The record is a 523-nucleotide sequence from Wolfiporia cocos, which matches "Nuclear RNase P" in Rfam.
RNA sequence: ACAGCGCGAAAGCCACGAGGCUCACACCGUACAGGCUGCCUCGCGCGGUCUUCUUCGUGAGCGGGCUAAGGUCUGAGUAUUCUAGUCCCCCUCGAUCGACUCUAGCGGGGUCCAGUCGUAACAGACUGAGCGACGCACUAGAAAUACAGCUGCGGGCCUUCCUGAGGAGUGAGUAGCCCUUGCCUCAGGAGCAGCCAACAAUUCUCGGUGAUUCCUAUGUCCUUCAGCGCCUACGGCACUGCUGUGCGCUCUGCAUGGAAAAUGGAGGAGGGAGGCUGAGUGCCAUAUGCGCAGCUUUGGGAAACGUCGCGGGGACUGGGCAGGCAUUCCUCUCGCUGGAACCGAUCGCUGUCCCUCGUCUGGUGUAGGGGAUAACCGCAUGGGUCCAAUUUCCGGGAUCCAUGUGCUCCUGCACGGACGAGCUCGACGCGCACGGUCAGGCCUGUCCUUGAGCUCACUUCGUGGCUCGCAUUAUGGGCUUUCGUGCCUUUGCGCAACUCGAUUCAGACUACUCUCCCGCUGU
Numbered sequence: 001a002c003a004g005c006g007c008g009a010a011a012g013c014c015a016c017g018a019g020g021c022u023c024a025c026a027c028c029g030u031a032c033a034g035g036c037u038g039c040c041u042c043g044c045g046c047g048g049u050c051u052u053c054u055u056c057g058u059g060a061g062c063g064g065g066c067u068a069a070g071g072u073c074u075g076a077g078u079a080u081u082c083u084a085g086u087c088c089c090c091c092u093c094g095a096u097c098g099a100c101u102c103u104a105g106c107g108g109g110g111u112c113c114a115g116u117c118g119u120a121a122c123a124g125a126c127u128g129a130g131c132g133a134c135g136c137a138c139u140a141g142a143a144a145u146a147c148a149g150c151u152g153c154g155g156g157c158c159u160u161c162c163u164g165a166g167g168a169g170u171g172a173g174u175a176g177c178c179c180u181u182g183c184c185u186c187a188g189g190a191g192c193a194g195c196c197a198a199c200a201a202u203u204c205u206c207g208g209u210g211a212u213u214c215c216u217a218u219g220u221c222c223u224u225c226a227g228c229g230c231c232u233a234c235g236g237c238a239c240u241g242c243u244g245u246g247c248g249c250u251c252u253g254c255a256u257g258g259a260a261a262a263u264g265g266a267g268g269a270g271g272g273a274g275g276c277u278g279a280g281u282g283c284c285a286u287a288u289g290c291g292c293a294g295c296u297u298u299g300g301g302a303a304a305c306g307u308c309g310c311g312g313g314g315a316c317u318g319g320g321c322a323g324g325c326a327u328u329c330c331u332c333u334c335g336c337u338g339g340a341a342c343c344g345a346u347c348g349c350u351g352u353c354c355c356u357c358g359u360c361u362g363g364u365g366u367a368g369g370g371g372a373u374a375a376c377c378g379c380a381u382g383g384g385u386c387c388a389a390u391u392u393c394c395g396g397g398a399u400c401c402a403u404g405u406g407c408u409c410c411u412g413c414a415c416g417g418a419c420g421a422g423c424u425c426g427a428c429g430c431g432c433a434c435g436g437u438c439a440g441g442c443c444u445g446u447c448c449u450u451g452a453g454c455u456c457a458c459u460u461c462g463u464g465g466c467u468c469g470c471a472u473u474a475u476g477g478g479c480u481u482u483c484g485u486g487c488c489u490u491u492g493c494g495c496a497a498c499u500c501g502a503u504u505c506a507g508a509c510u511a512c513u514c515u516c517c518c519g520c521u522g523u
Base pairs, nucleotide, nucleotide: 001523002522003521004520008516009515012466013465014464015463016462017461018460020062021061022060023059024058034050035049036048037047038046039045073507074506075505076504077503088314089313090312091311098112099111100110101109102108113128114127115126116125117124130310131309132308133307134306135305148296149295150294151293152292153291154290468494469493470492471491
Dot-bracket structure: ((((...((..(((((((.(((((.........((((((.....)))))).......)))))..........[[[[[..........((((......(((((.....)))))(((((......))))).((((((............(((((((.......................................................................................................................................)))))))........)))))))))).................................................................................................................................................))))))).((((...................))))........]]]]].......))...))))

The family is grouped with related families in Rfam's "RNaseP clan".